Small nucleolar RNA Z13/snr52: a 112-nucleotide RNA from Naganishia liquefaciens. The family has 42 seed sequences and 1,203 matches in Rfam 15.1. The base pairs follow the family's consensus structure, which was predicted with PFOLD.

RNA sequence: CUGUAUUGGAUGAUGAAGUAUUUUUCGGAUGUAAAAUGCCCUUCGGGGUACUUUUUCUGAUGUUGCGCAAAACCAUGUGGACACCUCCGUUGCCUUCCUUCUGACCUACAUA
Numbered sequence: 001c002u003g004u005a006u007u008g009g010a011u012g013a014u015g016a017a018g019u020a021u022u023u024u025u026c027g028g029a030u031g032u033a034a035a036a037u038g039c040c041c042u043u044c045g046g047g048g049u050a051c052u053u054u055u056u057c058u059g060a061u062g063u064u065g066c067g068c069a070a071a072a073c074c075a076u077g078u079g080g081a082c083a084c085c086u087c088c089g090u091u092g093c094c095u096u097c098c099u100u101c102u103g104a105c106c107u108a109c110a111u112a
Stems, first nucleotide, its partner, number of pairs: 003111002026089004
Rfam links the family to the GO terms nucleolus and RNA processing.